[Rfam]
RNA sequence: GGACCUCCGUCCUGCGAGACCUCUCGUCGUUCCCGCCCCGAAACAACUUCCCCGGUGGCGGGUCGGGAACGACGGGGCAUCUGGCCGGACGGCCUCCGGGCC
Numbered sequence: 001g002g003a004c005c006u007c008c009g010u011c012c013u014g015c016g017a018g019a020c021c022u023c024u025c026g027u028c029g030u031u032c033c034c035g036c037c038c039c040g041a042a043a044c045a046a047c048u049u050c051c052c053c054g055g056u057g058g059c060g061g062g063u064c065g066g067g068a069a070c071g072a073c074g075g076g077g078c079a080u081c082u083g084g085c086c087g088g089a090c091g092g093c094c095u096c097c098g099g100g101c102c
Stems, first nucleotide, its partner, number of pairs: 010089003014085002018081002022077014037062004043056002
RNA: mraW RNA